[Rfam]
RNA sequence: CUACUUCCUGAAACAAGUAAUCAAGAGUAGGCCGUGCUUUGAGGAAACAGCCUAUCCUGGAUUACUUGAACCAGGCAGCAG
Numbered sequence: 001c002u003a004c005u006u007c008c009u010g011a012a013a014c015a016a017g018u019a020a021u022c023a024a025g026a027g028u029a030g031g032c033c034g035u036g037c038u039u040u041g042a043g044g045a046a047a048c049a050g051c052c053u054a055u056c057c058u059g060g061a062u063u064a065c066u067u068g069a070a071c072c073a074g075g076c077a078g079c080a081g
Base pairs, nucleotide, nucleotide: 002080004078005077007075008074009073010072014068015067016066017065018064019063020062021061022060024058025057027055028054029053030052031051032050
Rfam assigns this 81-nucleotide RNA sequence from Xenopus tropicalis to the family "mir-26 microRNA precursor family".
Rfam links the family to the GO terms RISC complex and miRNA-mediated post-transcriptional gene silencing.
Lineage of the source: Eukaryota > Metazoa > Euteleostomi > Pipidae > Silurana.
A search with the family's covariance model found it, with a score of 58 bits.